The record is a 68-nucleotide RNA sequence from Flavobacterium cellulosilyticum, which matches "DUF805 RNA" in Rfam. The source organism's lineage runs through Bacteria, Pseudomonadati, Flavobacteriales, Flavobacteriaceae and Flavobacterium. The family has 46 seed sequences and 281 matches in Rfam 15.1. A search with the family's covariance model found it, with a score of 86 bits. Rfam classes the family as a cis-regulatory element.
RNA sequence: AAAAUGUGGAGACCAGAAACCACUUUAAAAACGGGGCGUUAUCGAAAAGCCAAAUGAGUAGAAGUAAA
Numbered sequence: 001a002a003a004a005u006g007u008g009g010a011g012a013c014c015a016g017a018a019a020c021c022a023c024u025u026u027a028a029a030a031a032c033g034g035g036g037c038g039u040u041a042u043c044g045a046a047a048a049g050c051c052a053a054a055u056g057a058g059u060a061g062a063a064g065u066a067a068a
Base pairs, nucleotide, nucleotide: 006023007022008021009020035051036050037049042062043061